[Rfam]
RNA: Small nucleolar RNA SNORA42/SNORA80 family
Nucleotides: 127
Stems, first nucleotide, its partner, number of pairs: 001059004005054003017046004022041003025037002075117003083110002088105001090103003
Number, partner (000 for none) and nucleotide at each position: 001059g002058c003057a004056u005054g006053g007052u008000c009000a010000u011000g012000g013000a014000u015000u016000g017046a018045u019044g020043g021000c022041a023040g024039g025037c026036u027000c028000u029000u030000c031000u032000c033000u034000g035000u036026g037025g038000g039024c040023c041022u042000c043020u044019c045018a046017u047000a048000u049000u050000c051000u052007g053006c054005c055000c056004g057003u058002g059001c060000c061000a062000g063000a064000g065000g066000a067000g068000u069000g070000u071000g072000c073000a074000g075117c076116c077115c078000u079000g080000g081000a082000c083110c084109a085000u086000u087000g088105c089000c090103c091102a092101g093000c094000c095000u096000c097000c098000u099000c100000a101092c102091u103090g104000a105088g106000c107000a108000c109084u110083g111000a112000a113000g114000g115077g116076g117075g118000a119000a120000a121000a122000a123000a124000a125000a126000a127000a